The family of this 94-nucleotide RNA sequence from Turnera subulata is "small nucleolar RNA snoR114".
The family's consensus secondary structure was predicted with RNAalifold.
[Rfam]
RNA sequence: AAGCUGUGACGAUAUCUUGUGCUCCAUGUGGUAGCUGGGUCUAUCACGACCGUCAGAUCUCUCAUUGGACGAUUCCUAAAGCACAUCUGAGCUU
Numbered sequence: 001a002a003g004c005u006g007u008g009a010c011g012a013u014a015u016c017u018u019g020u021g022c023u024c025c026a027u028g029u030g031g032u033a034g035c036u037g038g039g040u041c042u043a044u045c046a047c048g049a050c051c052g053u054c055a056g057a058u059c060u061c062u063c064a065u066u067g068g069a070c071g072a073u074u075c076c077u078a079a080a081g082c083a084c085a086u087c088u089g090a091g092c093u094u
Base pairs, nucleotide, nucleotide: 001094002093003092004091